[Rfam]
RNA sequence: AUAUAAUGGAUAGCGCUAGUGCCUGGUCCGCCAGGCAGACGAGGUAGAGAAGUAUCGAACAGUCAGCGGAUGUCUCUCGGCAGCUUCAGCCGUUAUAUGACGGAAAAACACGGCGGUAACGUCGUCGACAAGUUCGUCAUGGGAAGGAAC
Dot-bracket structure: ...................(((((((....)))))))........(((((....(.((....)).)......)))))((((.(...).))))....((((((.......((((((....)))))).........))))))..........
Numbered sequence: 001a002u003a004u005a006a007u008g009g010a011u012a013g014c015g016c017u018a019g020u021g022c023c024u025g026g027u028c029c030g031c032c033a034g035g036c037a038g039a040c041g042a043g044g045u046a047g048a049g050a051a052g053u054a055u056c057g058a059a060c061a062g063u064c065a066g067c068g069g070a071u072g073u074c075u076c077u078c079g080g081c082a083g084c085u086u087c088a089g090c091c092g093u094u095a096u097a098u099g100a101c102g103g104a105a106a107a108a109c110a111c112g113g114c115g116g117u118a119a120c121g122u123c124g125u126c127g128a129c130a131a132g133u134u135c136g137u138c139a140u141g142g143g144a145a146g147g148a149a150c
Stems, first nucleotide, its partner, number of pairs: 020037007046077005055066001057064002078092004083087001097140006110125006
Annotation:
Shown here is a 150-nucleotide RNA from Megasphaera elsdenii, a member of the family "glmS glucosamine-6-phosphate activated ribozyme aptamer". The family's consensus secondary structure is taken from published work. Rfam links the family to the GO terms catalytic activity and regulation of gene expression. Rfam classes the family as a riboswitch. It scores 84 bits against the family's covariance model. A reference for the family is Hampel and Tinsley (2006), "Evidence for preorganization of the glmS ribozyme ligand binding pocket", Biochemistry.